MIR159 microRNA precursor family: a 199-nucleotide RNA from Triticum aestivum. Rfam links the family to the GO terms RISC complex and miRNA-mediated post-transcriptional gene silencing. The source organism's lineage runs through Eukaryota, Embryophyta, Triticodae, Triticinae and Triticum.
RNA sequence: GAGAGAGAGAGAGAGCUCCCUUCAAUCCAAGCACGAGGGAAAGAUGAUGGUAGGUUCAUCUCCCGGGUCAUGCAAAACCUAUACAGGUGCGCACGCUCAACCGCACUGCAUGCACCGGACAGGUAUCCAUGAACCGGCAGCUGCAUCCGACCACUUCCCCUCCUGGAUUGGAUCGAAGGGAGCUCUUCUUUUUCGCCAU
Numbered sequence: 001g002a003g004a005g006a007g008a009g010a011g012a013g014a015g016c017u018c019c020c021u022u023c024a025a026u027c028c029a030a031g032c033a034c035g036a037g038g039g040a041a042a043g044a045u046g047a048u049g050g051u052a053g054g055u056u057c058a059u060c061u062c063c064c065g066g067g068u069c070a071u072g073c074a075a076a077a078c079c080u081a082u083a084c085a086g087g088u089g090c091g092c093a094c095g096c097u098c099a100a101c102c103g104c105a106c107u108g109c110a111u112g113c114a115c116c117g118g119a120c121a122g123g124u125a126u127c128c129a130u131g132a133a134c135c136g137g138c139a140g141c142u143g144c145a146u147c148c149g150a151c152c153a154c155u156u157c158c159c160c161u162c163c164u165g166g167a168u169u170g171g172a173u174c175g176a177a178g179g180g181a182g183c184u185c186u187u188c189u190u191u192u193u194c195g196c197c198a199u
Base pairs, nucleotide, nucleotide: 013185014184015183016182017181018180019179020178023175025173026172027171028170029169060140061139063137064136065135069131070130071129072128078123079122080121
Dot-bracket structure: ............((((((((..(.(((((..............................((.(((...((((.....(((........................................)))....))))...))).))............................))))).)..))))))))..............